[Rfam]
RNA: FMN riboswitch aptamer (RFN element)
Organism: Alkalibacter rhizosphaerae
RNA sequence: AAUGAUCUUCGGGGCAGGGUGCAAUUCCCUACCGGCGGUAAUAGUCCGCGAGCUUAACGGCUGAUCUGGUGCAAUUCCGGAACCGACAGUAUAGUCUGGAUGAGAGAAGAUGUUU
Number, nucleotide and partner (000 for none) at each position: 001a000002a000003u000004g000005a111006u110007c109008u108009u107010c106011g000012g000013g000014g000015c000016a000017g029018g028019g027020u000021g000022c000023a000024a000025u000026u000027c019028c018029c017030u000031a095032c094033c085034g084035g049036c048037g047038g046039u000040a000041a000042u000043a000044g083045u082046c038047c037048g036049c035050g000051a000052g061053c060054u059055u000056a000057a000058c000059g054060g053061c052062u000063g000064a000065u081066c080067u079068g078069g077070u000071g000072c000073a000074a000075u000076u000077c069078c068079g067080g066081a065082a045083c044084c034085g033086a000087c098088a097089g096090u000091a000092u000093a000094g032095u031096c089097u088098g087099g000100a000101u000102g000103a000104g000105a000106g010107a009108a008109g007110a006111u005112g000113u000114u000115u000